[Rfam]
RNA sequence: AGGUAAUGUCUACUGCACCUUUAUCACUGUAGGCACUCGGCCAUGCUGUGGGUUGGAAAGCCUUAGACGUGAAUCGUCGAGGGUAUGGCGUGAGGAGGGGUUAGAUGCCCU
Dot-bracket structure: [[[[..(((((((...]]]]........)))))))((((((((((((..(((((....)))))..((((.....))))...)))))))).))))..(((((.....)))))
The record is a 111-nucleotide sequence from Cohnella faecalis, which matches "epsC RNA" in Rfam.
Taxonomically the source falls in Cohnella (Bacteria, Bacillati, Bacillota, Paenibacillaceae).
By type it is a cis-regulatory element.
It scores 102 bits against the family's covariance model.